[Rfam]
RNA: Glycine riboswitch aptamer
RNA sequence: UAAUUUUUUACGGGAGAUACUGUAUUAAUUUACAGAGCCGAAGGAGCAACGACCCGGAAACUCUCAGGCAACAAGGACCGUGCAAGAAUA
Numbered sequence: 001u002a003a004u005u006u007u008u009u010a011c012g013g014g015a016g017a018u019a020c021u022g023u024a025u026u027a028a029u030u031u032a033c034a035g036a037g038c039c040g041a042a043g044g045a046g047c048a049a050c051g052a053c054c055c056g057g058a059a060a061c062u063c064u065c066a067g068g069c070a071a072c073a074a075g076g077a078c079c080g081u082g083c084a085a086g087a088a089u090a
Base pairs, nucleotide, nucleotide: 006085007084009082010081011080012079013078020035021034022033023032037069038068039067040065041064044063045062046061050056051055